Rfam assigns this 108-nucleotide sequence from Methyloradius palustris to the family "Guanidine-I riboswitch aptamer". For this family Rfam cites "New RNA motifs suggest an expanded scope for riboswitches in bacterial genetic control" (Barrick et al., Proc Natl Acad Sci U S A, 2004). Gene Ontology term of the family: regulation of gene expression. Pairs were carried over by alignment from the consensus structure. The source organism's lineage runs through Bacteria, Pseudomonadati, Pseudomonadota, Methylophilaceae and Methyloradius.
RNA sequence: UCGCAAGACAUCUAGGGUUCCGUUUUCUUUGCUAAUAGAAAAGCCUGGACCAAGAGUUGUCGGCCAACAAACACUUUGGCUACACGGAGGGAUAAAAACCCGGGAGAC
Numbered sequence: 001u002c003g004c005a006a007g008a009c010a011u012c013u014a015g016g017g018u019u020c021c022g023u024u025u026u027c028u029u030u031g032c033u034a035a036u037a038g039a040a041a042a043g044c045c046u047g048g049a050c051c052a053a054g055a056g057u058u059g060u061c062g063g064c065c066a067a068c069a070a071a072c073a074c075u076u077u078g079g080c081u082a083c084a085c086g087g088a089g090g091g092a093u094a095a096a097a098a099c100c101c102g103g104g105a106g107a108c
Stems, first nucleotide, its partner, number of pairs: 007061004012056001015051002020048002022045001023042006062081006083103001085106001089101003